[Rfam]
The record is a 290-nucleotide RNA sequence from Clostridium manihotivorum, which matches "T-box leader" in Rfam.
The base pairs follow the family's consensus structure, which is taken from published work.
Rfam classes the family as a cis-regulatory leader.
NCBI's taxonomy places the organism under Bacteria, Bacillati, Eubacteriales, Clostridiaceae, Clostridium.
Rfam's curators write: Uncharged tRNA acts as the effector for transcription antitermination of genes in the T-box leader family. T-boxes are found upstream of many aminoacyl-tRNA synthetase genes and some amino acid biosynthetic genes usually in Gram-positive bacteria.
A search with the family's covariance model found it, with a score of 118 bits.
RNA sequence: ACAAAGGUGUUGAAAAGAAAGAGUACACUUAGUGUUUUGCUUAAAGAGAGUUGUAGAUGGUGGAAUUACAACAGAAAAGCUUAGUGGAAGCAGUCUUGGAGUCUCUUGUUGAGAAAUAAGAUUAACUUUUAAUCUUAAUUAGAUAAAGACGUAACCUCACGUUAUAGAGGAAUGGAAUUAAAGUAUUCAAUUAGAAAUAUCCGUUUCUAAAAAGAAUGUUUUAUUCCUACUAAGAGAGUGCUUAUGCGCUAAUUAGGGUGGUACCGCGAAUAUACUCCUUCGUCCCUUUU
Dot-bracket structure: ......((......((((.......((((.(........((........((((((...........))))))))......).)))).......))))...))..((((((...............................)))).)).(((......)))...........................................................................(((((....)))))....((((.......(((((........)))))))))...